[Rfam]
Shown here is a 95-nucleotide RNA from Entomoplasma freundtii, a member of the family "TPP riboswitch aptamer (THI element)". NCBI's taxonomy places the organism under Bacteria, Mycoplasmatota, Mollicutes, Entomoplasmatales, Entomoplasma.
RNA sequence: AAAAAUGAACAGGGGUAACUUUUAAAAAAGUUUGAGAAACACUCUUUGAACCUGAUUUAGUUAACACUAACGGAGGGAGUUCAAUAUUAUUAACG
Numbered sequence: 001a002a003a004a005a006u007g008a009a010c011a012g013g014g015g016u017a018a019c020u021u022u023u024a025a026a027a028a029a030g031u032u033u034g035a036g037a038a039a040c041a042c043u044c045u046u047u048g049a050a051c052c053u054g055a056u057u058u059a060g061u062u063a064a065c066a067c068u069a070a071c072g073g074a075g076g077g078a079g080u081u082c083a084a085u086a087u088u089a090u091u092a093a094c095g
Base pairs, nucleotide, nucleotide: 006083007082008081009080010079011045012044013043014042016039017032018031019030020029021028051076052075053074057070058069059068060067